Rfam assigns this 46-nucleotide RNA sequence from Granulicella mallensis to the family "Acido-Lenti-1 RNA".
Pairs were carried over by alignment from the consensus structure, which is taken from published work.
NCBI's taxonomy places the organism under Bacteria, Pseudomonadati, Acidobacteriota, Terriglobales, Granulicella mallensis.
It scores 38 bits against the family's covariance model.
[Rfam]
RNA sequence: CCCAGGGCUACGCCCUGGGCUGUGAUGAAGCCGCCCCUUCGGGGCU
Numbered sequence: 001c002c003c004a005g006g007g008c009u010a011c012g013c014c015c016u017g018g019g020c021u022g023u024g025a026u027g028a029a030g031c032c033g034c035c036c037c038u039u040c041g042g043g044g045c046u
Base pairs, nucleotide, nucleotide: 001019002018003017004016005015006014007013008012033045034044035043036042037041